Shown here is a 96-nucleotide sequence from Methylobacterium sp. GXS13, a member of the family "Repression of heat shock gene expression (ROSE) element". It scores 51 bits against the family's covariance model. Rfam describes the family as follows. This family represents a 5' UTR cis-regulatory element found in heat shock mRNAs and is known as the ROSE (repression of heat shock gene expression) element. The ROSE element is a negative regulator of heat shock gene expression. The secondary structure is thought to be regulated by temperature. This regulation blocks access to the ribosome binding site under normal conditions.
[Rfam]
RNA sequence: GCGAGGCCUGGAAACAGGCUCGCCAGUUGGGCGCCGGUCCUGGUGUCCGGCGACUCUUGUAGUCACGUUGCUCACUGGAGGAUGUGGUUAUGAGGA
Numbered sequence: 001g002c003g004a005g006g007c008c009u010g011g012a013a014a015c016a017g018g019c020u021c022g023c024c025a026g027u028u029g030g031g032c033g034c035c036g037g038u039c040c041u042g043g044u045g046u047c048c049g050g051c052g053a054c055u056c057u058u059g060u061a062g063u064c065a066c067g068u069u070g071c072u073c074a075c076u077g078g079a080g081g082a083u084g085u086g087g088u089u090a091u092g093a094g095g096a
Base pairs, nucleotide, nucleotide: 001023002022003021004020005019007018008017009016010015030054032052033051034050035049036048037047056094057093058092059091060090061089063087064086065085066084067083068082069081071080072079073078